[Rfam]
RNA sequence: UGGUAGAUGGACCCUGGUAUAGCUCUGGACUUACUGUCUAGAGCUUUUUUUA
Numbered sequence: 001u002g003g004u005a006g007a008u009g010g011a012c013c014c015u016g017g018u019a020u021a022g023c024u025c026u027g028g029a030c031u032u033a034c035u036g037u038c039u040a041g042a043g044c045u046u047u048u049u050u051u052a
Stems, first nucleotide, its partner, number of pairs: 002013003022044009

About this RNA:
The family of this 52-nucleotide RNA from Okeania hirsuta is "Nitrogen stress-induced RNA 1". The base pairs follow the family's consensus structure. The literature on the family includes a 2010 paper in J Mol Biol by Ionescu et al., "Heterocyst-specific transcription of NsiR1, a non-coding RNA encoded in a tandem array of direct repeats in cyanobacteria". A search with the family's covariance model found it, with a score of 43 bits.